Shown here is a 94-nucleotide RNA from Kutzneria viridogrisea, a member of the family "Glycine riboswitch aptamer". For this family Rfam cites "A glycine-dependent riboswitch that uses cooperative binding to control gene expression" (Mandal et al., Science, 2004). The base pairs follow the family's consensus structure. NCBI's taxonomy places the organism under Bacteria, Bacillati, Actinomycetota, Pseudonocardiales, Kutzneria viridogrisea. About the family: This family represents the bacterial glycine riboswitch.
[Rfam]
RNA sequence: ACAGCCCGGUCGGGAGAGCUCUCGGUUCACGCCGGGGCGCCGAAGGAGCAAGCACUCCCCGCACACUCUCAGGCAACAAGACCGGCCGGGCGAG
Numbered sequence: 001a002c003a004g005c006c007c008g009g010u011c012g013g014g015a016g017a018g019c020u021c022u023c024g025g026u027u028c029a030c031g032c033c034g035g036g037g038c039g040c041c042g043a044a045g046g047a048g049c050a051a052g053c054a055c056u057c058c059c060c061g062c063a064c065a066c067u068c069u070c071a072g073g074c075a076a077c078a079a080g081a082c083c084g085g086c087c088g089g090g091c092g093a094g
Base pairs, nucleotide, nucleotide: 006089007088008087009086010085011084012083013082020037021036022035023034039074040073041072042070043069046068047067048066052062053061